[Rfam]
RNA sequence: AGUAUGGGUAGAGGCCGAGAAGCCCGUCCCGUUUAAGAACGUGGCACCCUAUGAGGGACGAGGCAGAGCCAGUGGUGCGACCGGCUACCGACGCG
Numbered sequence: 001a002g003u004a005u006g007g008g009u010a011g012a013g014g015c016c017g018a019g020a021a022g023c024c025c026g027u028c029c030c031g032u033u034u035a036a037g038a039a040c041g042u043g044g045c046a047c048c049c050u051a052u053g054a055g056g057g058a059c060g061a062g063g064c065a066g067a068g069c070c071a072g073u074g075g076u077g078c079g080a081c082c083g084g085c086u087a088c089c090g091a092c093g094c095g
Stems, first nucleotide, its partner, number of pairs: 002094002005091001007089005013070003022064003025060005043081001044078005
The record is a 95-nucleotide sequence, which matches "c-di-GMP-II-GAG riboswitch aptamer" in Rfam.
A reference for the family is Weinberg et al. (2017), "Bioinformatic analysis of riboswitch structures uncovers variant classes with altered ligand specificity", Proc Natl Acad Sci U S A.